[Rfam]
RNA sequence: AUGAUUCUUCGGGGCAGGGUGAGCUUGUUAUUAGCAAUUCCCUACCGGCGGUUAAAGCCCGCGAACCGGCUGAAAAGCUGGUUGAACUGGUGAGAUUCCAGUGCCGACAGUAUAGUCUGGACGAGAGAAGAGUAAG
Numbered sequence: 001a002u003g004a005u006u007c008u009u010c011g012g013g014g015c016a017g018g019g020u021g022a023g024c025u026u027g028u029u030a031u032u033a034g035c036a037a038u039u040c041c042c043u044a045c046c047g048g049c050g051g052u053u054a055a056a057g058c059c060c061g062c063g064a065a066c067c068g069g070c071u072g073a074a075a076a077g078c079u080g081g082u083u084g085a086a087c088u089g090g091u092g093a094g095a096u097u098c099c100a101g102u103g104c105c106g107a108c109a110g111u112a113u114a115g116u117c118u119g120g121a122c123g124a125g126a127g128a129a130g131a132g133u134a135a136g
Base pairs, nucleotide, nucleotide: 004133005132006131007130008129009128010127017042018041019040044116045115046106047105048062049061050060051059057104058103065082066081067080086102087101088100089099090098108119109118110117
Shown here is a 136-nucleotide RNA from Oceanispirochaeta crateris, a member of the family "FMN riboswitch aptamer (RFN element)". A search with the family's covariance model found it, with a score of 105 bits.